[Rfam]
The family of this 74-nucleotide RNA from Crocodylus porosus is "Mammalian CPEB3 ribozyme". A reference for the family is Salehi-Ashtiani et al. (2006), "A genomewide search for ribozymes reveals an HDV-like sequence in the human CPEB3 gene", Science. Lineage of the source: Eukaryota > Opisthokonta > Teleostomi > Sauropsida > Crocodylus.
RNA sequence: UCACAUGUUCAAGGCCAUAGCAGAACUGGUUAUGGUGUGGCCUGUCAGAUUCCAAUGAAUCUGCAAAUUCUGCU
Numbered sequence: 001u002c003a004c005a006u007g008u009u010c011a012a013g014g015c016c017a018u019a020g021c022a023g024a025a026c027u028g029g030u031u032a033u034g035g036u037g038u039g040g041c042c043u044g045u046c047a048g049a050u051u052c053c054a055a056u057g058a059a060u061c062u063g064c065a066a067a068u069u070c071u072g073c074u
Stems, first nucleotide, its partner, number of pairs: 013042004019074007027037002046063007